[Rfam]
RNA sequence: CUAUGUGCUUAACAGUGAGUUGAACAGGGCAGCAUAGAGAGAAAUUUCUAUGUGUAAUCUGUCAAAUUCGGGGAAGCCAUUAGCACGGUAAUCCCGAGCCAAGCCAAAGCUUCGUUUAGAGGCUACGGAAGGUGUAGAGACUGGAUGGCAGACACCCUAACGAAAUAGGUUUGAUACCUAGACGAGGGUGAAGGGACAGUCCAGACCAGCAAACGACUCA
Numbered sequence: 001c002u003a004u005g006u007g008c009u010u011a012a013c014a015g016u017g018a019g020u021u022g023a024a025c026a027g028g029g030c031a032g033c034a035u036a037g038a039g040a041g042a043a044a045u046u047u048c049u050a051u052g053u054g055u056a057a058u059c060u061g062u063c064a065a066a067u068u069c070g071g072g073g074a075a076g077c078c079a080u081u082a083g084c085a086c087g088g089u090a091a092u093c094c095c096g097a098g099c100c101a102a103g104c105c106a107a108a109g110c111u112u113c114g115u116u117u118a119g120a121g122g123c124u125a126c127g128g129a130a131g132g133u134g135u136a137g138a139g140a141c142u143g144g145a146u147g148g149c150a151g152a153c154a155c156c157c158u159a160a161c162g163a164a165a166u167a168g169g170u171u172u173g174a175u176a177c178c179u180a181g182a183c184g185a186g187g188g189u190g191a192a193g194g195g196a197c198a199g200u201c202c203a204g205a206c207c208a209g210c211a212a213a214c215g216a217c218u219c220a
Base pairs, nucleotide, nucleotide: 005035006034007033008032009031013027038047039046040045058152059151060150061149063147064146068097069096070095071094072093073092077088078087080085098133099132104127109123110122111121112120113119137202139201140200141199142198143197155188156187157186158185208218209217
Dot-bracket structure: ....(((((...(.............)...)))))..(((....)))..........[[[[.[[...((((((...((.(....).))...))))))((....(....(((((.....)))))...)....))...(.(((((..]].]]]]..((((..........................))))........)))))).....((.......))..

Rfam assigns this 220-nucleotide RNA sequence from cf. Phormidesmis sp. LEGE 11477 to the family "Group I catalytic intron". It scores 66 bits against the family's covariance model. Rfam describes the family as follows. Group I catalytic introns are large self-splicing ribozymes. They catalyse their own excision from mRNA, tRNA and rRNA precursors in a wide range of organisms. For this family Rfam cites "Self-splicing of group I introns" (Cech, Annu Rev Biochem, 1990). Gene Ontology term of the family: Group I intron splicing. Lineage of the source: Bacteria > Cyanobacteriota > Cyanophyceae > Leptolyngbyales > Phormidesmis. Pairs were carried over by alignment from the consensus structure, which is taken from published work.